[Rfam]
RNA sequence: AUCACCUUGUAGGGAGAAUCCGGUUCAGUCCGGUGCCGAAGGAGCAACCGCCCCGGAAACUCUCAGGCAAACGGACCACAAGGCGUA
Numbered sequence: 001a002u003c004a005c006c007u008u009g010u011a012g013g014g015a016g017a018a019u020c021c022g023g024u025u026c027a028g029u030c031c032g033g034u035g036c037c038g039a040a041g042g043a044g045c046a047a048c049c050g051c052c053c054c055g056g057a058a059a060c061u062c063u064c065a066g067g068c069a070a071a072c073g074g075a076c077c078a079c080a081a082g083g084c085g086u087a
Stems, first nucleotide, its partner, number of pairs: 005083006012077002020033004035068003038064002042062003048056002
Background: Glycine riboswitch aptamer: an 87-nucleotide RNA sequence from Gillisella ampelina. It scores 59 bits against the family's covariance model. The base pairs follow the family's consensus structure. Rfam describes the family as follows. This family represents the bacterial glycine riboswitch.